[Rfam]
RNA: TPP riboswitch aptamer (THI element)
RNA sequence: GGGACGUCCGAGGGGUGUCCGGUCUCCGUCAGGAGCCCGGUCUGAGACAGCCGGUUGCGGCUGAACCCUUUGAACCUGAUCCGGGUCAUGCCGGCGAAGGAACGGGAGUUUCAGGUGAG
Numbered sequence: 001g002g003g004a005c006g007u008c009c010g011a012g013g014g015g016u017g018u019c020c021g022g023u024c025u026c027c028g029u030c031a032g033g034a035g036c037c038c039g040g041u042c043u044g045a046g047a048c049a050g051c052c053g054g055u056u057g058c059g060g061c062u063g064a065a066c067c068c069u070u071u072g073a074a075c076c077u078g079a080u081c082c083g084g085g086u087c088a089u090g091c092c093g094g095c096g097a098a099g100g101a102a103c104g105g106g107a108g109u110u111u112c113a114g115g116u117g118a119g
Stems, first nucleotide, its partner, number of pairs: 007106004011069004016063001017042001019040003049062005075100003081094004